[Rfam]
RNA: Plant small nucleolar RNA U3
Organism: Castanea mollissima
RNA sequence: ACGACCUUACUUGAACAGGAUCUGUUCUAUAGGAUCGUACCUCUGUAUCCUUGCUCACUAAGGAGACAGGACCCCAAACCUGGUGGAUGAACCAUGGCCGUGCGAUCAGAGCGUGAUUAACGGUCUUGAUCCUUCUGUUCGAGGGAUCAAUCUGUAGAUGAUCGUUCUCAACUUGGGCUCGCCCAGCUGGGAUGGUCAUACGGCUGUCUGACAGGCU
Number, nucleotide and partner (000 for none) at each position: 001a038002c037003g035004a000005c033006c032007u031008u000009a000010c000011u000012u000013g027014a026015a025016c024017a023018g022019g000020a000021u000022c018023u017024g016025u015026u014027c013028u000029a000030u000031a007032g006033g005034a000035u003036c000037g002038u001039a000040c000041c000042u000043c069044u068045g067046u066047a000048u064049c063050c062051u061052u060053g059054c000055u000056c000057a000058c000059u053060a052061a051062g050063g049064a048065g000066a046067c045068a044069g043070g000071a000072c000073c000074c000075c000076a000077a000078a000079c215080c214081u213082g212083g000084u000085g000086g000087a000088u000089g000090a000091a000092c000093c000094a000095u000096g000097g204098c203099c202100g201101u200102g199103c000104g197105a196106u195107c194108a193109g000110a166111g165112c164113g163114u000115g000116a000117u000118u000119a000120a155121c154122g153123g152124u000125c000126u150127u149128g148129a147130u146131c145132c144133u143134u142135c141136u000137g000138u000139u000140c000141g135142a134143g133144g132145g131146a130147u129148c128149a127150a126151u000152c123153u122154g121155u120156a000157g000158a000159u000160g000161a000162u000163c113164g112165u111166u110167c000168u190169c189170a188171a000172c186173u000174u185175g184176g183177g182178c000179u000180c000181g000182c177183c176184c175185a174186g172187c000188u170189g169190g168191g000192a000193u108194g107195g106196u105197c104198a000199u102200a101201c100202g099203g098204c097205u000206g000207u000208c000209u000210g000211a000212c082213a081214g080215g079216c000217u000